[Rfam]
RNA sequence: AAGUGUUACUGCACUUUUAGGGUUUGUCUGGCAGGUUUUCCGGUUUUUGUCAAACUCCCCC
Number, nucleotide and partner (000 for none) at each position: 001a000002a000003g000004u000005g000006u000007u000008a000009c000010u000011g000012c000013a000014c000015u000016u000017u000018u000019a000020g000021g000022g000023u000024u000025u000026g000027u000028c000029u000030g000031g000032c000033a000034g058035g057036u000037u054038u053039u052040c000041c000042g051043g050044u049045u000046u000047u000048u000049g044050u043051c042052a039053a038054a037055c000056u000057c035058c034059c000060c000061c000
The family of this 61-nucleotide sequence from Carlito syrichta is "U7 small nuclear RNA". The base pairs follow the family's consensus structure, which was predicted with PFOLD. NCBI's taxonomy places the organism under Eukaryota, Deuterostomia, Sarcopterygii, Tarsiidae, Carlito. Animal histone pre-mRNAs are spliced by a different mechanism than nuclear pre-mRNAs and self-splicing introns.